[Rfam]
RNA sequence: CAUGGGUUUAUGUUAUAUUCCAUCUCUUGCACACUGGACUAGAGGGUUCUUUUUCUGGUUUCAGGUUUCGGGUUAGUGUGCAGGGGGUGGAAUACAUCAUUCAAAUCAUG
Numbered sequence: 001c002a003u004g005g006g007u008u009u010a011u012g013u014u015a016u017a018u019u020c021c022a023u024c025u026c027u028u029g030c031a032c033a034c035u036g037g038a039c040u041a042g043a044g045g046g047u048u049c050u051u052u053u054u055c056u057g058g059u060u061u062c063a064g065g066u067u068u069c070g071g072g073u074u075a076g077u078g079u080g081c082a083g084g085g086g087g088u089g090g091a092a093u094a095c096a097u098c099a100u101u102c103a104a105a106u107c108a109u110g
Stems, first nucleotide, its partner, number of pairs: 001110005007103001010100003014096001016094022039071001
A member of the RNA family "MIR2950 microRNA precursor family" from Hibiscus syriacus, 110 nucleotides long.
It scores 85 bits against the family's covariance model.
The family's consensus secondary structure was predicted with RNAalifold.